Annotation:
Shown here is a 61-nucleotide RNA sequence from Pristionchus pacificus, a member of the family "mir-8364 microRNA precursor family". A search with the family's covariance model found it, with a score of 67 bits. Pairs were carried over by alignment from the consensus structure, which was predicted with RNAalifold. NCBI's taxonomy places the organism under Eukaryota, Ecdysozoa, Rhabditida, Neodiplogasteridae, Pristionchus.
[Rfam]
RNA sequence: UCUUCAUUUAUCGUGCUCUCUCACCGGUCAGACACGCGAGAUAGUGUGUGACAUGAAGAAA
Numbered sequence: 001u002c003u004u005c006a007u008u009u010a011u012c013g014u015g016c017u018c019u020c021u022c023a024c025c026g027g028u029c030a031g032a033c034a035c036g037c038g039a040g041a042u043a044g045u046g047u048g049u050g051a052c053a054u055g056a057a058g059a060a061a
Stems, first nucleotide, its partner, number of pairs: 001059007012048006019041004